[Rfam]
RNA sequence: GUCAUCUGCGGCUACGGCUUCAGGUGCGUGUCCUUGUUAUACUUCAAGGGAGAGGUAAUCCUUCGCCAUGUUGAGAAACGGCGUAAAAACAGUGACUGAG
Numbered sequence: 001g002u003c004a005u006c007u008g009c010g011g012c013u014a015c016g017g018c019u020u021c022a023g024g025u026g027c028g029u030g031u032c033c034u035u036g037u038u039a040u041a042c043u044u045c046a047a048g049g050g051a052g053a054g055g056u057a058a059u060c061c062u063u064c065g066c067c068a069u070g071u072u073g074a075g076a077a078a079c080g081g082c083g084u085a086a087a088a089a090c091a092g093u094g095a096c097u098g099a100g
Base pairs, nucleotide, nucleotide: 003026004025005024006023007022008021010019011018012017064083065082066081067080
RNA: RT-9 RNA